[Rfam]
RNA sequence: CAACACACUCCGGGGUGCCCGCACACGCGAGCUGAGAUGGCUGACCGCAGCCGAACCCGUCAACUUGAUCCGGUUAGCACCGGCGUAAGGAAGAGCAGCACCUUCAGCG
Numbered sequence: 001c002a003a004c005a006c007a008c009u010c011c012g013g014g015g016u017g018c019c020c021g022c023a024c025a026c027g028c029g030a031g032c033u034g035a036g037a038u039g040g041c042u043g044a045c046c047g048c049a050g051c052c053g054a055a056c057c058c059g060u061c062a063a064c065u066u067g068a069u070c071c072g073g074u075u076a077g078c079a080c081c082g083g084c085g086u087a088a089g090g091a092a093g094a095g096c097a098g099c100a101c102c103u104u105c106a107g108c109g
Base pairs, nucleotide, nucleotide: 008095009094010093011059012058013057014056016053017032018031020029021028039052040051041050042049043048064089065088066087067086070083071082072081073080
The family of this 109-nucleotide RNA from Ottowia beijingensis is "TPP riboswitch aptamer (THI element)".
The match comes from Rfam's covariance-model search (63 bits).
About the family: Vitamin B(1) in its active form thiamin pyrophosphate (TPP) is an essential coenzyme that is synthesised by coupling of pyrimidine and thiazole moieties in bacteria. The previously detected thiamin-regulatory element, thi box was extended, resulting in a new, highly conserved RNA secondary structure, the THI element, which is widely distributed in eubacteria and also occurs in some archaea. Analysis of operon structures identified a large number of new candidate thiamin-regulated genes, mostly transporters, in various prokaryotic organisms.
Its family is annotated with thiamine pyrophosphate binding in the Gene Ontology.